[Rfam]
Shown here is a 330-nucleotide sequence from Saccharomyces arboricola, a member of the family "Small nucleolar RNA snR83". Its family is annotated with nucleolus and RNA processing in the Gene Ontology. The source organism's lineage runs through Eukaryota, Opisthokonta, Ascomycota, Saccharomycetales and Saccharomyces arboricola. By type it is an H/ACA-box small nucleolar RNA. On this family, see Schattner et al., Nucleic Acids Res 2004: "Genome-wide searching for pseudouridylation guide snoRNAs: analysis of the Saccharomyces cerevisiae genome". A search with the family's covariance model found it, with a score of 303 bits. Clan: SNORA4 clan.
Nucleotides: 330
Stems, first nucleotide, its partner, number of pairs: 003243008025230005030221007040155006047149002050147012080116002083113005166205004170199005178191005264322005276308008284299003
Number, partner (000 for none) and nucleotide at each position: 001000a002000c003243c004242c005241a006240a007239a008238a009237a010236c011000a012000u013000c014000a015000a016000g017000a018000a019000a020000a021000g022000c023000c024000u025230u026229u027228c028227a029226a030221u031220a032219a033218a034217u035216u036215g037000c038000u039000u040155u041154u042153u043152u044151c045150u046000u047149g048148g049000c050147g051146a052145g053144a054143g055142a056141g057140a058139u059138a060137g061136a062000g063000a064000a065000a066000g067000a068000u069000a070000g071000g072000a073000g074000g075000g076000u077000g078000g079000c080116g081115g082000a083113g084112g085111g086110a087109a088000c089000c090000g091000g092000a093000a094000c095000u096000u097000a098000g099000g100000u101000u102000u103000c104000g105000g106000g107000g108000a109087u110086u111085u112084c113083u114000u115081u116080c117000a118000u119000u120000u121000u122000u123000u124000u125000u126000c127000u128000g129000u130000u131000u132000u133000u134000g135000u136061u137060c138059u139058g140057u141056u142055u143054u144053u145052u146051u147050c148048c149047c150045g151044g152043a153042a154041a155040a156000u157000a158000a159000c160000u161000u162000u163000u164000c165000a166205g167204g168203a169202c170199c171198g172197a173196u174195u175000a176000c177000c178191g179190u180189a181188g182187u183000u184000g185000c186000g187182a188181c189180u190179a191178c192000a193000c194000c195174a196173a197172u198171u199170g200000u201000u202169g203168u204167u205166c206000a207000u208000a209000u210000c211000c212000c213000c214000a215036c216035g217034a218033u219032u220031u221030a222000c223000u224000u225000u226029u227028u228027g229026g230025a231000a232000a233000c234000u235000a236010g237009u238008u239007u240006u241005u242004g243003g244000a245000a246000u247000a248000a249000u250000a251000a252000u253000g254000u255000u256000g257000u258000a259000a260000a261000u262000u263000u264322c265321c266320c267319u268318u269000u270000u271000u272000c273000c274000a275000c276308c277307c278306u279305a280304a281303u282302u283301u284299g285298u286297a287000u288000u289000u290000g291000a292000u293000u294000c295000g296000u297286u298285a299284c300000a301283a302282a303281a304280u305279u306278g307277g308276g309000a310000c311000u312000a313000a314000u315000a316000u317000u318268a319267a320266g321265g322264g323000c324000g325000a326000c327000a328000g329000u330000u